Nucleotides: 077
Stems, first nucleotide, its partner, number of pairs: 002076004008070004013065001015063009027051002030048001032046002
Number, partner (000 for none) and nucleotide at each position: 001000c002076u003075c004074u005073a006000a007000g008070a009069u010068g011067u012000g013065c014000u015063c016062a017061c018060u019059g020058c021057a022056u023055g024000a025000g026000g027051u028050g029000u030048g031000c032046a033045u034000a035000u036000u037000c038000u039000u040000a041000u042000u043000c044000a045033a046032u047000a048030c049000c050028c051027a052000g053000a054000a055023c056022a057021u058020g059019c060018a061017g062016u063015g064000u065013g066000a067011a068010c069009a070008u071000a072000a073005u074004a075003g076002a077000u